The family of this 186-nucleotide sequence from Acinetobacter baumannii is "Aar sRNA". A reference for the family is Schilling et al. (2010), "The small RNA Aar in Acinetobacter baylyi: a putative regulator of amino acid metabolism", Arch Microbiol. By type it is a small RNA.

[Rfam]
RNA sequence: UUUAACGUGAAGUAACACUAAUUAACGUGAACCUUAAUGAACAAAUAAGAAUGCGUCACUAAUAUAACUUGAGUAGGUUGAUAUGAACCUCACGACAUUUCUCCUUAAGCCGAAACUGUUUUUAACAGAUUCGUUGUUCUACGCAGUGAUCACCCCAAUCAUUGCGUAUUUUUUUGUCUUUUUUUA
Numbered sequence: 001u002u003u004a005a006c007g008u009g010a011a012g013u014a015a016c017a018c019u020a021a022u023u024a025a026c027g028u029g030a031a032c033c034u035u036a037a038u039g040a041a042c043a044a045a046u047a048a049g050a051a052u053g054c055g056u057c058a059c060u061a062a063u064a065u066a067a068c069u070u071g072a073g074u075a076g077g078u079u080g081a082u083a084u085g086a087a088c089c090u091c092a093c094g095a096c097a098u099u100u101c102u103c104c105u106u107a108a109g110c111c112g113a114a115a116c117u118g119u120u121u122u123u124a125a126c127a128g129a130u131u132c133g134u135u136g137u138u139c140u141a142c143g144c145a146g147u148g149a150u151c152a153c154c155c156c157a158a159u160c161a162u163u164g165c166g167u168a169u170u171u172u173u174u175u176g177u178c179u180u181u182u183u184u185u186a
Base pairs, nucleotide, nucleotide: 013053014052019047020046022044023043026039027038028037071183072182073181075179076178077177078176079094080093111133112132113131114130116128117127118126119125141167142166143165144164145163146162147161148160149159150158
Dot-bracket structure: ............((....((.((..(((........)))...)).))....)).................(((.((((((............))................((((.((((.....)))).)))).......((((((((((.......))))))))))........)))).)))...